[Rfam]
RNA sequence: CUUCAGGGACGACUCUGAAUCACCAGAUACCUUAAGGGGACGACCCCU
Numbered sequence: 001c002u003u004c005a006g007g008g009a010c011g012a013c014u015c016u017g018a019a020u021c022a023c024c025a026g027a028u029a030c031c032u033u034a035a036g037g038g039g040a041c042g043a044c045c046c047c048u
Base pairs, nucleotide, nucleotide: 002019003018004017005016006015007014008013035048036047037046038045039044
Shown here is a 48-nucleotide RNA sequence from Lacimicrobium alkaliphilum, a member of the family "Guanidine-II riboswitch aptamer (mini-ykkC)". The literature on the family includes a 2007 paper in Nucleic Acids Res by Weinberg et al., "Identification of 22 candidate structured RNAs in bacteria using the CMfinder comparative genomics pipeline". Simpler in structure and has fewer highly conserved nucleotide positions than the ykkC-yxkD leader.